[Rfam]
RNA sequence: UGCACUUUGUGUUGUAAGUCACUCUGGAUAAAAGUGUCUGCCAAAUGCCUGUAA
Numbered sequence: 001u002g003c004a005c006u007u008u009g010u011g012u013u014g015u016a017a018g019u020c021a022c023u024c025u026g027g028a029u030a031a032a033a034g035u036g037u038c039u040g041c042c043a044a045a046u047g048c049c050u051g052u053a054a
Base pairs, nucleotide, nucleotide: 013043014041015040016039020036021035022034023033025031
Shown here is a 54-nucleotide RNA from Albula glossodonta, a member of the family "UnaL2 LINE 3' element".
By type it is a cis-regulatory element.
Pairs were carried over by alignment from the consensus structure, which is taken from published work.
The eel long interspersed element (LINE) UnaL2 and its partner short interspersed element (SINE) share a conserved 3' tail containing a stem-loop that is critical for their retrotransposition.
The match comes from Rfam's covariance-model search (55 bits).
A reference for the family is Baba et al. (2004), "Solution structure of an RNA stem-loop derived from the 3' conserved region of eel LINE UnaL2", RNA.
Lineage of the source: Eukaryota > Metazoa > Deuterostomia > Gnathostomata > Albula.